Rfam assigns this 152-nucleotide RNA sequence from Delphinapterus leucas to the family "Small nucleolar RNA SNORA15". A reference for the family is Huttenhofer et al. (2001), "RNomics: an experimental approach that identifies 201 candidates for novel, small, non-messenger RNAs in mouse", EMBO J. It scores 81 bits against the family's covariance model. From the family's description: ACA15 is a member of the H/ACA class of snoRNA that guide the sites of modification of uridines to pseudouridines. The family has 22 seed sequences and 974 matches in Rfam 15.1. The base pairs follow the family's consensus structure, which was predicted with RNAfold.

RNA sequence: GCAGGACUGAAUACUGUGGGGUUUUUUUAUCAGUGGUUUACAUAGCCAGACACCAUUCAAAAAAAAGAAAAAAAGCAGUCUUCCCUUUAAAGUGGUUAUAAUCAUAUGCUAAGUUUUUUCAUAGCAUAUCAUUAUUAAAGGUAAAUACAAAG
Number, nucleotide and partner (000 for none) at each position: 001g058002c000003a056004g000005g054006a000007c000008u000009g000010a000011a000012u000013a000014c045015u044016g043017u042018g041019g000020g000021g000022u040023u000024u000025u000026u000027u000028u000029a000030u000031c000032a000033g000034u000035g000036g000037u000038u000039u000040a022041c018042a017043u016044a015045g014046c000047c000048a000049g000050a000051c000052a000053c000054c005055a000056u003057u000058c001059a000060a000061a000062a000063a000064a000065a000066a000067g000068a000069a000070a000071a000072a000073a000074a000075g000076c000077a000078g000079u000080c000081u145082u144083c000084c141085c140086u139087u138088u137089a136090a135091a000092g000093u000094g000095g000096u000097u000098a000099u134100a133101a132102u131103c000104a129105u128106a127107u126108g125109c124110u123111a122112a000113g000114u000115u000116u000117u000118u000119u000120c000121a000122u111123a110124g109125c108126a107127u106128a105129u104130c000131a102132u101133u100134a099135u090136u089137a088138a087139a086140g085141g084142u000143a000144a082145a081146u000147a000148c000149a000150a000151a000152g000